A member of the RNA family "Rhizobiales sRNA Atu_C8" from Candidatus Tokpelaia sp. JSC189, 118 nucleotides long.
The source organism's lineage runs through Bacteria, Pseudomonadati, Pseudomonadota, Alphaproteobacteria and Candidatus Tokpelaia.
The family's RNA type in Rfam is small RNA.

[Rfam]
RNA sequence: AGCUAUGAAAAAUAUUAUUCUUGUAGUGUGGAUGCGCAUGGGGCAGAUGGCAUAACAUCUGGCGUCAGCCUUUCAUGUGCGGAACAGGCUCCUUCGGGAGCCUUUUUUAUUAUGAAAA
Numbered sequence: 001a002g003c004u005a006u007g008a009a010a011a012a013u014a015u016u017a018u019u020c021u022u023g024u025a026g027u028g029u030g031g032a033u034g035c036g037c038a039u040g041g042g043g044c045a046g047a048u049g050g051c052a053u054a055a056c057a058u059c060u061g062g063c064g065u066c067a068g069c070c071u072u073u074c075a076u077g078u079g080c081g082g083a084a085c086a087g088g089c090u091c092c093u094u095c096g097g098g099a100g101c102c103u104u105u106u107u108u109a110u111u112a113u114g115a116a117a118a
Base pairs, nucleotide, nucleotide: 029114030113032111033081034080035079036078037077038076039075040074041073042072045060046059047058048057049056062069063068086103087102088101089100090099091098092097